[Rfam]
RNA: mir-320 microRNA precursor family
RNA sequence: UUAGCUAGGGGCCUUCUUUUCCCGGUUCUUCCCAGAGUCAGGAAAAGCUGGGUUGAGAGGGCGAAAAUAAAAAAUA
Numbered sequence: 001u002u003a004g005c006u007a008g009g010g011g012c013c014u015u016c017u018u019u020u021c022c023c024g025g026u027u028c029u030u031c032c033c034a035g036a037g038u039c040a041g042g043a044a045a046a047g048c049u050g051g052g053u054u055g056a057g058a059g060g061g062c063g064a065a066a067a068u069a070a071a072a073a074a075u076a
Stems, first nucleotide, its partner, number of pairs: 014059005021052005029044004